A member of the RNA family "c-di-AMP riboswitch aptamer (ydaO/yuaA leader)" from Paenibacillus solanacearum, 198 nucleotides long. The organism belongs to Paenibacillus, within Bacteria.

RNA sequence: CAUUUUUACUCGCUGAAUUUCCUUGGAUAUCAAGGAGAACGGGGGAACCAACGAAGCGGUGCAUGCACGGUGUGAGAGCCGGACGCGCGCCGCAGGGGUGAAUCGCGGGUACGGAUACCAUGGAUUCCGUAUUUGCGUAGGGCGACUCUCACCGCCCGAAUCCGUCAGCUAACCUCGUAAGCGUUGAAUGGCAGUAUG
Numbered sequence: 001c002a003u004u005u006u007u008a009c010u011c012g013c014u015g016a017a018u019u020u021c022c023u024u025g026g027a028u029a030u031c032a033a034g035g036a037g038a039a040c041g042g043g044g045g046a047a048c049c050a051a052c053g054a055a056g057c058g059g060u061g062c063a064u065g066c067a068c069g070g071u072g073u074g075a076g077a078g079c080c081g082g083a084c085g086c087g088c089g090c091c092g093c094a095g096g097g098g099u100g101a102a103u104c105g106c107g108g109g110u111a112c113g114g115a116u117a118c119c120a121u122g123g124a125u126u127c128c129g130u131a132u133u134u135g136c137g138u139a140g141g142g143c144g145a146c147u148c149u150c151a152c153c154g155c156c157c158g159a160a161u162c163c164g165u166c167a168g169c170u171a172a173c174c175u176c177g178u179a180a181g182c183g184u185u186g187a188a189u190g191g192c193a194g195u196a197u198g
Stems, first nucleotide, its partner, number of pairs: 011183004018038009039178006049095001096163003104137012140157004